[Rfam]
RNA sequence: CCGCCGCUGUGUCCUAUGGCUUUUUAUUCCUAUGUGAUGACAGAUUGAGCUCAUGUAGGGAUAGAAGCCACUUAACACACGGCGA
Numbered sequence: 001c002c003g004c005c006g007c008u009g010u011g012u013c014c015u016a017u018g019g020c021u022u023u024u025u026a027u028u029c030c031u032a033u034g035u036g037a038u039g040a041c042a043g044a045u046u047g048a049g050c051u052c053a054u055g056u057a058g059g060g061a062u063a064g065a066a067g068c069c070a071c072u073u074a075a076c077a078c079a080c081g082g083c084g085a
Stems, first nucleotide, its partner, number of pairs: 002084005009078004017070007026062012
mir-135 microRNA precursor family: an 85-nucleotide RNA sequence from Esox lucius.
A reference for the family is Kim et al. (2004), "Identification of many microRNAs that copurify with polyribosomes in mammalian neurons", Proc Natl Acad Sci U S A.
Taxonomically the source falls in Esox (Eukaryota, Teleostei, Protacanthopterygii, Esocidae).